[Rfam]
RNA sequence: AUAGAUUUGACCAUUCAAGGGUCAGGACUAAUUUUGCCUAAAAAGGAGCCA
Numbered sequence: 001a002u003a004g005a006u007u008u009g010a011c012c013a014u015u016c017a018a019g020g021g022u023c024a025g026g027a028c029u030a031a032u033u034u035u036g037c038c039u040a041a042a043a044a045g046g047a048g049c050c051a
Stems, first nucleotide, its partner, number of pairs: 009023004
Overview: The family of this 51-nucleotide RNA is "algC RNA". Rfam classes the family as a cis-regulatory element. The family's consensus secondary structure is taken from published work.